[Rfam]
RNA sequence: CGUCGUUCUCAGGGCGGGGCGAAACUCCCCACCGGCGGUAUGCAGGCAUCAUGACCCGUAAGCCCGCGAGCGGCCCUUUUCCAAGGGUGUCAGCAGAUCUGGUGAGAUGCCAGAGCCGACGGUCAUAGUCCGGAUGAAAGAGAACGUGC
Numbered sequence: 001c002g003u004c005g006u007u008c009u010c011a012g013g014g015c016g017g018g019g020c021g022a023a024a025c026u027c028c029c030c031a032c033c034g035g036c037g038g039u040a041u042g043c044a045g046g047c048a049u050c051a052u053g054a055c056c057c058g059u060a061a062g063c064c065c066g067c068g069a070g071c072g073g074c075c076c077u078u079u080u081c082c083a084a085g086g087g088u089g090u091c092a093g094c095a096g097a098u099c100u101g102g103u104g105a106g107a108u109g110c111c112a113g114a115g116c117c118g119a120c121g122g123u124c125a126u127a128g129u130c131c132g133g134a135u136g137a138a139a140g141a142g143a144a145c146g147u148g149c
Stems, first nucleotide, its partner, number of pairs: 004146007017029003031129002033118002035067004062116002070094002098114005120132003
Dot-bracket structure: ...(((((((......(((.......))).[[((((((.......................[[))))..((.....................))...(((((.......)))))]])).(((.....]]))).......)))))))...

Rfam assigns this 149-nucleotide sequence from Falsiruegeria litorea to the family "FMN riboswitch aptamer (RFN element)". Gene Ontology term of the family: FMN binding. It scores 114 bits against the family's covariance model. The organism belongs to Falsiruegeria litorea, within Bacteria.